[Rfam]
RNA sequence: CUCUUAUCAAGAGCGGUGGAGGGAAUAGGCCCUGUGAAGCCCAGCAACCAAAAAGCGAUGAAAUAUUGCUUUUUACGGUGCUACAUCCUACAGAUCCAUUUUAUGAUCUGGAAGAUAAGAG
Numbered sequence: 001c002u003c004u005u006a007u008c009a010a011g012a013g014c015g016g017u018g019g020a021g022g023g024a025a026u027a028g029g030c031c032c033u034g035u036g037a038a039g040c041c042c043a044g045c046a047a048c049c050a051a052a053a054a055g056c057g058a059u060g061a062a063a064u065a066u067u068g069c070u071u072u073u074u075a076c077g078g079u080g081c082u083a084c085a086u087c088c089u090a091c092a093g094a095u096c097c098a099u100u101u102u103a104u105g106a107u108c109u110g111g112a113a114g115a116u117a118a119g120a121g
Stems, first nucleotide, its partner, number of pairs: 001121008013042001015041003021032003026090004043082004048078002050074009086113001091110006
RNA: SAM riboswitch aptamer (S box leader)